[Rfam]
Archaeal small subunit ribosomal RNA: a 499-nucleotide part of an RNA from an uncultured archaeon.
RNA sequence: UCCGUUUGAUCCUGGCAGAGGCUACUGCUAUCGGGGUCCGACUAAGCCAUGCGAGUUGAGAGGGGUAAGCCCUCGGCGAAUUGCUCAGUAACACGCGGACAACCUGCCCUUGGGUCCGGGAUAACCCCGGGAAACUGGGACUAAUACCGGAUAGAUCAAGGAUACUGGAAUGUUCCCCGGUCUAAAACUCCGGUGCCCAAGGAUGGGUCUGCGGCCUAUCAGGUAGUAGUGGGUGUAACGUACCUACUAGCCUACGACGGGUAAGGGUUGUGAGAGCAAGAGCCCUGAGAUGGAUUCUGAGACAUGAAUCCAGGCCCUACGGGGUGCAGCAGGCGCGAAAACUUUACACUGCGGGAAACCGCGAUAAGGGGACCCCGAGUGCCAGCACCUAGUGCUGGCUGUCCCGCUGUCUAAACAACAGUGGUUAGCAAGGGCCGGGCAAGACCGGUGCCAGCCGCCGCGGUAACACCGGCGGCCCGAGUGGUAGCCGUUAUUAUUG
Numbered sequence: 001u002c003c004g005u006u007u008g009a010u011c012c013u014g015g016c017a018g019a020g021g022c023u024a025c026u027g028c029u030a031u032c033g034g035g036g037u038c039c040g041a042c043u044a045a046g047c048c049a050u051g052c053g054a055g056u057u058g059a060g061a062g063g064g065g066u067a068a069g070c071c072c073u074c075g076g077c078g079a080a081u082u083g084c085u086c087a088g089u090a091a092c093a094c095g096c097g098g099a100c101a102a103c104c105u106g107c108c109c110u111u112g113g114g115u116c117c118g119g120g121a122u123a124a125c126c127c128c129g130g131g132a133a134a135c136u137g138g139g140a141c142u143a144a145u146a147c148c149g150g151a152u153a154g155a156u157c158a159a160g161g162a163u164a165c166u167g168g169a170a171u172g173u174u175c176c177c178c179g180g181u182c183u184a185a186a187a188c189u190c191c192g193g194u195g196c197c198c199a200a201g202g203a204u205g206g207g208u209c210u211g212c213g214g215c216c217u218a219u220c221a222g223g224u225a226g227u228a229g230u231g232g233g234u235g236u237a238a239c240g241u242a243c244c245u246a247c248u249a250g251c252c253u254a255c256g257a258c259g260g261g262u263a264a265g266g267g268u269u270g271u272g273a274g275a276g277c278a279a280g281a282g283c284c285c286u287g288a289g290a291u292g293g294a295u296u297c298u299g300a301g302a303c304a305u306g307a308a309u310c311c312a313g314g315c316c317c318u319a320c321g322g323g324g325u326g327c328a329g330c331a332g333g334c335g336c337g338a339a340a341a342c343u344u345u346a347c348a349c350u351g352c353g354g355g356a357a358a359c360c361g362c363g364a365u366a367a368g369g370g371g372a373c374c375c376c377g378a379g380u381g382c383c384a385g386c387a388c389c390u391a392g393u394g395c396u397g398g399c400u401g402u403c404c405c406g407c408u409g410u411c412u413a414a415a416c417a418a419c420a421g422u423g424g425u426u427a428g429c430a431a432g433g434g435c436c437g438g439g440c441a442a443g444a445c446c447g448g449u450g451c452c453a454g455c456c457g458c459c460g461c462g463g464u465a466a467c468a469c470c471g472g473c474g475g476c477c478c479g480a481g482u483g484g485u486a487g488c489c490g491u492u493a494u495u496a497u498u499g
Base pairs, nucleotide, nucleotide: 002018004016005015006014020489021488022487023486024485025484026483027482028481029480031378032377033376034375035374036373037372038371039370040336046334047333048332050331051330052329055077056076057075060074061073062072063071064070084289085288086287094213095212096211097210098209099208100207103206104205108202109201110200111199112198113197114196116150117149118148119147126139127138128137129136130135155181156180157179160176161175162174164173165172187194188193215261216260217259222252223251224250227249228248229247230246231245232244233243234242264286265285266284267283268279269278270277271276291312292311293310294309295308296307314325315324316323317322342368344367345366346365350363351362352361353360354359381399382398383397384396385395386394387393388392403428404424405423406422407421408420409419410418432478433477434476435475436474437473445472446471447470448469454461455460
For this family Rfam cites "Crystal structure of the ribosome at 5.5 A resolution" (Yusupov et al., Science, 2001). The sequence is in the family's curated seed alignment. Its family is annotated with structural constituent of ribosome and ribosome in the Gene Ontology.